Source information
Shown here is a 64-nucleotide sequence from Kurthia massiliensis, a member of the family "RAGATH-18 RNA". From the family's description: Actinobacteria, Firmicutes, Fusobacteria, Thermotogae (1 example). The family's consensus secondary structure is taken from published work. The family's RNA type in Rfam is small RNA.
[Rfam]
Nucleotides: 064
Base pairs, nucleotide, nucleotide: 001062002061003060004059005058009051010050011049012048013047022046023045024044030039031038032037
Number, partner (000 for none) and nucleotide at each position: 001062c002061c003060u004059g005058u006000g007000g008000a009051g010050a011049g012048u013047g014000a015000u016000a017000c018000g019000a020000a021000a022046c023045g024044u025000u026000a027000g028000u029000a030039g031038g032037u033000a034000c035000g036000u037032g038031c039030c040000g041000g042000g043000g044024a045023c046022g047013c048012a049011u050010u051009c052000u053000g054000a055000g056000a057000a058005g059004c060003a061002g062001g063000a064000a